[Rfam]
RNA sequence: GAUUGUAUUUUGAGUCUGUAACUGAAUCAAAGGUGAAUCAAAACGUGAACAUCUAAACUACAUUUUGUAGCCUUGUGGAUAACUUCAACC
Numbered sequence: 001g002a003u004u005g006u007a008u009u010u011u012g013a014g015u016c017u018g019u020a021a022c023u024g025a026a027u028c029a030a031a032g033g034u035g036a037a038u039c040a041a042a043a044c045g046u047g048a049a050c051a052u053c054u055a056a057a058c059u060a061c062a063u064u065u066u067g068u069a070g071c072c073u074u075g076u077g078g079a080u081a082a083c084u085u086c087a088a089c090c
Stems, first nucleotide, its partner, number of pairs: 001090001003088003009056002012053002015048002023040003027036003058078005

Shown here is a 90-nucleotide RNA from Pelagibacterales bacterium SAG-MED20, a member of the family "SAR11_0636 sRNA". The source organism's lineage runs through Bacteria, Pseudomonadati, Pseudomonadota, Alphaproteobacteria and Candidatus Pelagibacterales. Pairs were carried over by alignment from the consensus structure, which is taken from published work. It is annotated as a small RNA. A search with the family's covariance model found it, with a score of 106 bits.